[Rfam]
RNA: chrB-a RNA
Organism: Denitrobaculum tricleocarpae
RNA sequence: UGGAUGGGGUUUGCGAUCACCCCGUGAGGCGUCAGCCCAAGAGUCGCGUCCUUGACCUUAAUUUGAAGGGAGGGCGUGUUAUG
Numbered sequence: 001u002g003g004a005u006g007g008g009g010u011u012u013g014c015g016a017u018c019a020c021c022c023c024g025u026g027a028g029g030c031g032u033c034a035g036c037c038c039a040a041g042a043g044u045c046g047c048g049u050c051c052u053u054g055a056c057c058u059u060a061a062u063u064u065g066a067a068g069g070g071a072g073g074g075c076g077u078g079u080u081a082u083g
Stems, first nucleotide, its partner, number of pairs: 005024006046077006